[Rfam]
Shown here is a 76-nucleotide RNA sequence from Sparus aurata, a member of the family "U1A polyadenylation inhibition element (PIE)". The source organism's lineage runs through Eukaryota, Euteleostomi, Eurypterygia, Acanthomorphata and Sparus. It is annotated as a cis-regulatory element. A reference for the family is Clerte and Hall (2004), "Global and Local Dynamics of the U1A Polyadenylation Inhibition Element (PIE) RNA and PIE RNA-U1A Complexes", Biochemistry. Rfam describes the family as follows. This family represents the U1A polyadenylation inhibition element (PIE). PIE is a regulatory RNA which is responsible for the regulation of the length of the polyA tail of the U1A pre-mRNA. The PIE is located in the U1A mRNA 3' UTR. PIE adopts a U-shaped structure, with binding sites for a single U1A protein at each bend and when complexed with the two proteins it blocks activity of poly(A) polymerase (PAP), and inhibits its activity. The family's consensus secondary structure is taken from published work. Gene Ontology term of the family: regulation of mRNA polyadenylation.
RNA sequence: UCAUAAAGCAUUGCACCCAGAGUCUGGUCUACCAGACAUUGUACCUGGAGCUUUUUUGUUUUUUUUAAAAUUAAAC
Numbered sequence: 001u002c003a004u005a006a007a008g009c010a011u012u013g014c015a016c017c018c019a020g021a022g023u024c025u026g027g028u029c030u031a032c033c034a035g036a037c038a039u040u041g042u043a044c045c046u047g048g049a050g051c052u053u054u055u056u057u058g059u060u061u062u063u064u065u066u067a068a069a070a071u072u073a074a075a076c
Stems, first nucleotide, its partner, number of pairs: 005054005017048004022037005